[Rfam]
Description
The record is a 58-nucleotide RNA sequence from Neltuma glandulosa, which matches "Plastid-ccsA-ndhD-1 3UTR RNA" in Rfam. NCBI's taxonomy places the organism under Eukaryota, Mesangiospermae, Gunneridae, rosids, Neltuma. The family's consensus secondary structure was predicted with LocARNA. Rfam 15.1 lists 1,322 matches to the family in 557 species.

RNA sequence: AAACAGUCGAGAACCCUUUAAAUCAAGUAAUGUAGUGAUUCAAGGGGUUCUCACAAAC
Number, nucleotide and partner (000 for none) at each position: 001a000002a000003a000004c000005a000006g000007u000008c000009g052010a051011g050012a049013a048014c047015c046016c045017u044018u043019u042020a000021a040022a039023u038024c037025a036026a000027g000028u000029a000030a000031u000032g000033u000034a000035g000036u025037g024038a023039u022040u021041c000042a019043a018044g017045g016046g015047g014048u013049u012050c011051u010052c009053a000054c000055a000056a000057a000058c000